Annotation
The family of this 103-nucleotide sequence from Zongyangia hominis is "Purine riboswitch aptamer".
RNA sequence: UUUUGAUACAGCAAAUCCAUCCAUAUUAGUCUGUGAAUAGGGCACAGAAGUCUCUACGUGAUAACCUUAAAUUAUCUACGCUAUGGGUGUGUUUUUAUGUUUC
Numbered sequence: 001u002u003u004u005g006a007u008a009c010a011g012c013a014a015a016u017c018c019a020u021c022c023a024u025a026u027u028a029g030u031c032u033g034u035g036a037a038u039a040g041g042g043c044a045c046a047g048a049a050g051u052c053u054c055u056a057c058g059u060g061a062u063a064a065c066c067u068u069a070a071a072u073u074a075u076c077u078a079c080g081c082u083a084u085g086g087g088u089g090u091g092u093u094u095u096u097a098u099g100u101u102u103c
Stems, first nucleotide, its partner, number of pairs: 018089008030048006058079002060076005
About this RNA: Pairs were carried over by alignment from the consensus structure, which is taken from published work. Rfam links the family to the GO term purine nucleobase biosynthetic process.